[Rfam]
RNA sequence: CUCUGGAGAGCGGAGCAGCGUCCUCGCGGGCGCGGGCUCCCGCCGACGGGGAAAGGGCUGCGCGCGGCCCGAAUCUCUCAGGCACGAGAACAGAG
Dot-bracket structure: (((((......((((.....................)))).(((((..(((...((((........))))....))))).))).......)))))
RNA: Glycine riboswitch aptamer